[Rfam]
RNA sequence: CCCACGAUGACGGGAGAGACUGGCCUUCGAGGCUGGCGCCGAAGGAGCAACCGCCCCUGGAAUCUCUCAGGCCAAAGGACCGACAUCGGCUG
Numbered sequence: 001c002c003c004a005c006g007a008u009g010a011c012g013g014g015a016g017a018g019a020c021u022g023g024c025c026u027u028c029g030a031g032g033c034u035g036g037c038g039c040c041g042a043a044g045g046a047g048c049a050a051c052c053g054c055c056c057c058u059g060g061a062a063u064c065u066c067u068c069a070g071g072c073c074a075a076a077g078g079a080c081c082g083a084c085a086u087c088g089g090c091u092g
Base pairs, nucleotide, nucleotide: 006087007086008085009084011082012081013080020036021035022034023033038072039071040070041068042067045066046065047064051059
The family of this 92-nucleotide RNA sequence from Acidomonas methanolica is "Glycine riboswitch aptamer". The pairing is the family consensus, mapped onto this sequence. Taxonomically the source falls in Acidomonas methanolica (Bacteria, Acetobacterales, Acetobacteraceae, Acidomonas). A search with the family's covariance model found it, with a score of 68 bits.